A member of the RNA family "Selenocysteine insertion sequence 1" from Orycteropus afer, 64 nucleotides long.

[Rfam]
RNA sequence: GUCACCCUUAAUGAUGUGGAUAGAGUAAAGCUUUCAGGACCUCUAUUUGCUGAUGGGUUAUGAC
Numbered sequence: 001g002u003c004a005c006c007c008u009u010a011a012u013g014a015u016g017u018g019g020a021u022a023g024a025g026u027a028a029a030g031c032u033u034u035c036a037g038g039a040c041c042u043c044u045a046u047u048u049g050c051u052g053a054u055g056g057g058u059u060a061u062g063a064c
Stems, first nucleotide, its partner, number of pairs: 001064004016050010031038002

It is annotated as a cis-regulatory element.